[Rfam]
RNA sequence: GGAUGCUGGUUUCACAUGGUGGUUUAGAUUUAACAUGCAAUGUCUAGCACCAUAUGAAAUCAGUGUCCU
Number, nucleotide and partner (000 for none) at each position: 001g068002g067003a066004u000005g000006c063007u062008g061009g060010u059011u058012u057013c056014a055015c000016a053017u052018g051019g050020u049021g048022g000023u000024u000025u046026a045027g044028a043029u000030u000031u000032a000033a000034c000035a000036u000037g000038c000039a000040a000041u000042g000043u028044c027045u026046a025047g000048c021049a020050c019051c018052a017053u016054a000055u014056g013057a012058a011059a010060u009061c008062a007063g006064u000065g000066u003067c002068c001069u000
RNA: mir-29 microRNA precursor family
Organism: Eleutherodactylus coqui